[Rfam]
RNA: Lysine riboswitch aptamer
Organism: Turicibacter sp. HGF1
Nucleotides: 173
Stems, first nucleotide, its partner, number of pairs: 007167005016079006023072002032064007083111008093101001112138002115135008140158007
Number, partner (000 for none) and nucleotide at each position: 001000u002000g003000a004000u005000g006000a007167g008166u009165u010164a011163g012000a013000g014000g015000u016079g017078c018077a019076u020075g021074g022000c023072u024071a025000a026000a027000g028000a029000g030000u031000a032064g033063g034062a035061a036060u037059u038058u039000c040000g041000a042000g043000a044000g045000u046000g047000a048000c049000g050000u051000c052000u053000a054000a055000g056000a057000c058038a059037a060036a061035u062034u063033c064032u065000a066000a067000a068000a069000g070000g071024u072023a073000u074021c075020c076019a077018u078017g079016c080000c081000g082000a083111a084110g085109u086108g087107a088106a089105a090104a091000u092000a093101g094000u095000g096000u097000c098000c099000g100000c101093u102000a103000u104090u105089u106088u107087u108086u109085g110084c111083u112138g113137g114000g115135g116134u117133u118132a119131g120130a121129u122128u123000g124000a125000a126000g127000a128122a129121g130120u131119c132118u133117a134116a135115c136000a137113c138112u139000g140158u141157c142156a143155c144154u145153g146152c147000c148000u149000a150000u151000g152146g153145u154144a155143g156142u157141g158140g159000a160000g161000a162000a163011c164010u165009a166008a167007u168000g169000a170000u171000c172000g173000g